[Rfam]
RNA: U7 small nuclear RNA
Organism: Homo sapiens
RNA sequence: AAGAAGUUAAGGUCUUUCAGAAUUUGUCUAGCAGAUUUUCUGCUUCUCACCAGAAAACCCAU
Numbered sequence: 001a002a003g004a005a006g007u008u009a010a011g012g013u014c015u016u017u018c019a020g021a022a023u024u025u026g027u028c029u030a031g032c033a034g035a036u037u038u039u040c041u042g043c044u045u046c047u048c049a050c051c052a053g054a055a056a057a058c059c060c061a062u
Stems, first nucleotide, its partner, number of pairs: 034059001036057007044049001